This 50-nucleotide sequence belongs to the Rfam family "chrB-b RNA". Pairs were carried over by alignment from the consensus structure, which is taken from published work. The sequence is in the family's curated seed alignment. Rfam classes the family as a cis-regulatory element.
RNA sequence: UGGGGAAACGCAGGCUCCCCUUCAGACGGCCCGUCCCGUCCAAGCUCUGC
Numbered sequence: 001u002g003g004g005g006a007a008a009c010g011c012a013g014g015c016u017c018c019c020c021u022u023c024a025g026a027c028g029g030c031c032c033g034u035c036c037c038g039u040c041c042a043a044g045c046u047c048u049g050c
Stems, first nucleotide, its partner, number of pairs: 002020005010050005025040005